[Rfam]
About this RNA: A member of the RNA family "U12 minor spliceosomal RNA" from Ciona savignyi, 150 nucleotides long. It is one of the family's seed sequences. For this family Rfam cites "Pre-mRNA splicing: the discovery of a new spliceosome doubles the challenge" (Tarn and Steitz, Trends Biochem Sci, 1997). It is annotated as a spliceosomal small nuclear RNA. Clan: U2 clan.
Nucleotides: 150
Base pairs, nucleotide, nucleotide: 004023005022007020008019033054034053035052036051037050038049039048040047056070057069058068059067084150085149086148087147091145092144093143094142095141097139101134102133104131105130106129107128108127109125110124111123112122113121
Number, partner (000 for none) and nucleotide at each position: 001000g002000u003000g004023c005022c006000g007020u008019a009000a010000a011000c012000u013000a014000a015000u016000g017000a018000g019008u020007a021000a022005g023004g024000a025000a026000a027000a028000u029000a030000a031000a032000c033054g034053a035052a036051c037050c038049c039048u040047g041000g042000u043000g044000a045000c046000g047040c048039g049038g050037g051036g052035u053034u054033u055000a056070a057069a058068g059067g060000g061000u062000a063000u064000u065000u066000c067059c068058c069057u070056u071000g072000c073000g074000u075000g076000a077000u078000u079000u080000u081000u082000g083000a084150g085149g086148g087147g088000c089000a090000c091145a092144g093143g094142u095141c096000g097139c098000u099000a100000u101134u102133g103000g104131c105130u106129g107128u108127g109125g110124a111123a112122g113121c114000u115000u116000a117000c118000u119000u120000u121113g122112c123111u124110u125109u126000c127108c128107g129106c130105a131104g132000u133102u134101g135000a136000a137000g138000u139097g140000g141095g142094a143093u144092c145091u146000u147087c148086c149085c150084c